[Rfam]
RNA sequence: AAUACGAAAAGGCAAACUUAUUGAAAGGUAAGGACGCAAAGCCGUGGGUCUAAAGUUCCGUAGGGGAAUACGAUUGCCAGGUUGCCGAA
Numbered sequence: 001a002a003u004a005c006g007a008a009a010a011g012g013c014a015a016a017c018u019u020a021u022u023g024a025a026a027g028g029u030a031a032g033g034a035c036g037c038a039a040a041g042c043c044g045u046g047g048g049u050c051u052a053a054a055g056u057u058c059c060g061u062a063g064g065g066g067a068a069u070a071c072g073a074u075u076g077c078c079a080g081g082u083u084g085c086c087g088a089a
Base pairs, nucleotide, nucleotide: 012037013036017032018031019030020029021028022027040083041082042081043080045079046078047077048074049073050072056067057066058065
The record is an 89-nucleotide sequence from Niallia nealsonii, which matches "c-di-GMP-I riboswitch aptamer" in Rfam. Its Rfam clan is "c-di-GMP_I riboswitch clan". Taxonomically the source falls in Niallia (Bacteria, Bacilli, Caryophanales, Bacillaceae).